RNA sequence: GUUAUUUCAGGUGAUGGGGCUCACCUUAUAAAUGCCAACAGCUAAUGGCUCCUACUUUCAA
Number, nucleotide and partner (000 for none) at each position: 001g000002u000003u000004a000005u000006u000007u000008c000009a000010g025011g024012u023013g022014a000015u000016g052017g051018g050019g049020c048021u047022c013023a012024c011025c010026u000027u000028a000029u000030a000031a000032a000033u000034g042035c041036c000037a000038a000039c000040a000041g035042c034043u000044a000045a000046u000047g021048g020049c019050u018051c017052c016053u000054a000055c000056u000057u000058u000059c000060a000061a000